[Rfam]
RNA sequence: UGAUGGCAGUGAUGAUUUCUGCAUUUGUUGUUCACCUGAUAACAACAUGAGGGUGUCCAGUCACUACCUCAUCUGAUGCCAUCU
Dot-bracket structure: .((((((......................................................................)))))).
Source information:
Small nucleolar RNA SNORD11B: an 84-nucleotide sequence from Chinchilla lanigera. It scores 95 bits against the family's covariance model. Gene Ontology terms of the family: RNA processing and nucleolus. It is annotated as a C/D-box small nucleolar RNA.